RNA sequence: GGAGUCGGCUCGGCAGUCGCUUCGGUGCUUGCACCGGGGAGGAAAGUCCGGGCUCCACAGGGCAGAGCGCCAGGUAACGCCUGGGGGGCGAGAGCCCACGGAAAGUGCAGCAGAAAGUAAACCGCCUAAGCGACCUCGGUCGCCGGUAAGGGUGAAAUGGUGCGGUAAGAGCGCACCGCGCGGCUGGCAACAGUUCGCGGCGAUGGUAAACCCCGCUCGGAGCAAGACCAAAUAGGAACCCGAUGGUGCGGCCCGUACCGGGUUCGGGUAGGUCGCUCGAGGUGCGUGGCGACACGCAUCCCAGAUGAAUGACUGUCCUCGACAGAACCCGGCUUACAGGCCGACUCCGACU
Dot-bracket structure: ((((((((((.(((((((.((((((((....))))))))....[[[.[[[[[((((...[[[[.((((((((((.....)))))(((((....)))).)((...((((.............(((((...(((((....))))).)))..)).......((((((.......))))))(((((((((....))).))))).)....))..)))))))))))))...((((......((((((...(((((.]]]]))))))))))).....))))......((((((((....))))))))..........)))))))..........]]]]]]]]...))))))))))....
Rfam assigns this 352-nucleotide RNA sequence from Marinimicrobium koreense to the family "Bacterial RNase P class A". It is annotated as a ribozyme.